S15-Flavobacteria ribosomal protein leader: a 68-nucleotide RNA sequence. The family is grouped with related families in Rfam's "Ribosomal Protein S15 Leader clan". Rfam classes the family as a cis-regulatory leader.
RNA sequence: UAUCUUUGCACUCGAAUUGAGAAACCCUCUAUUCAUACAUAAUAAUCAUUUAAAAUAAUAUUGGAAUG
Numbered sequence: 001u002a003u004c005u006u007u008g009c010a011c012u013c014g015a016a017u018u019g020a021g022a023a024a025c026c027c028u029c030u031a032u033u034c035a036u037a038c039a040u041a042a043u044a045a046u047c048a049u050u051u052a053a054a055a056u057a058a059u060a061u062u063g064g065a066a067u068g
Base pairs, nucleotide, nucleotide: 014034015033016032017031019029